[Rfam]
RNA sequence: AGCUGUCUUCGGGGGCGGGGUGAGAUUCCCCACCGGCGGUGAUGCACCAAGUGUGACAAGCCCGCGAGCCUGAAAGGGCAUGACCCGGUUUGAAUCCGGAGCCGACGGUAGAGUCCGGAUGAAAGAAGAUUGUU
Number, nucleotide and partner (000 for none) at each position: 001a000002g000003c132004u000005g130006u129007c128008u127009u126010c125011g000012g000013g000014g000015g000016c000017g000018g030019g029020g028021u000022g000023a000024g000025a000026u000027u000028c020029c019030c018031c000032a114033c113034c104035g103036g065037c064038g063039g062040u000041g000042a000043u000044g000045c000046a000047c000048c000049a000050a000051g000052u000053g000054u000055g000056a000057c000058a000059a000060g102061c101062c039063c038064g037065c036066g000067a000068g000069c000070c078071u000072g000073a000074a000075a000076g000077g000078g070079c000080a000081u000082g000083a000084c000085c099086c098087g097088g096089u000090u000091u000092g000093a000094a000095u000096c088097c087098g086099g085100a000101g061102c060103c035104g034105a000106c117107g116108g115109u000110a000111g000112a000113g033114u032115c108116c107117g106118g000119a000120u000121g000122a000123a000124a000125g010126a009127a008128g007129a006130u005131u000132g003133u000134u000
The family of this 134-nucleotide RNA from Oscillospiraceae bacterium HV4-5-C5C is "FMN riboswitch aptamer (RFN element)". The family's consensus secondary structure is taken from published work. Taxonomically the source falls in Oscillospiraceae (Bacteria, Bacillota, Clostridia, Eubacteriales).